[Rfam]
RNA: Small nucleolar RNA SNORA32
RNA sequence: CAGUCAUUACCAAGGCUUUCUGAAUGAAGUUUCUCAUUUGCGUCGGACAUGACCAUAAAAAAAUUUCCCACUAGGUUUUCUGUCUGCUACCUUGUUAGCAAUCAACCUGUUGGGAACCUUC
Numbered sequence: 001c002a003g004u005c006a007u008u009a010c011c012a013a014g015g016c017u018u019u020c021u022g023a024a025u026g027a028a029g030u031u032u033c034u035c036a037u038u039u040g041c042g043u044c045g046g047a048c049a050u051g052a053c054c055a056u057a058a059a060a061a062a063a064u065u066u067c068c069c070a071c072u073a074g075g076u077u078u079u080c081u082g083u084c085u086g087c088u089a090c091c092u093u094g095u096u097a098g099c100a101a102u103c104a105a106c107c108u109g110u111u112g113g114g115a116a117c118c119u120u121c
Stems, first nucleotide, its partner, number of pairs: 003053005010046002026041001028039002067114004074107004085100003